[Rfam]
RNA sequence: GAAGUGCGAACCAAGCGAGCGCCCCGGCGCUGUAAGACUUGGAGCGGGAGUCCGCAAGGACACCCUGCA
Dot-bracket structure: ..........(((((..(((((....)))))......)))))...(((.((((....)))).)))....
The family of this 69-nucleotide sequence is "Transposase-2 RNA". By type it is a small RNA. The base pairs follow the family's consensus structure, which is taken from published work. It is one of the family's seed sequences.